[Rfam]
About this RNA:
Rfam assigns this 86-nucleotide RNA sequence from Heliophilum fasciatum to the family "Group II catalytic intron D1-D4-1". About the family: Group II introns are found in rRNA, tRNA and mRNA of organelles in fungi, plants and protists, and also in mRNA in bacteria.
RNA sequence: CAAAUCGCGUCGCAAGGCGCGACUGAACCGGCAGGAGUCAGCAGAGGUCAUAGUACCGGUGAAUGACGUCAGAAACCGGGAAGGGC
Numbered sequence: 001c002a003a004a005u006c007g008c009g010u011c012g013c014a015a016g017g018c019g020c021g022a023c024u025g026a027a028c029c030g031g032c033a034g035g036a037g038u039c040a041g042c043a044g045a046g047g048u049c050a051u052a053g054u055a056c057c058g059g060u061g062a063a064u065g066a067c068g069u070c071a072g073a074a075a076c077c078g079g080g081a082a083g084g085g086c
Stems, first nucleotide, its partner, number of pairs: 001025002005022007038045002047086003056079005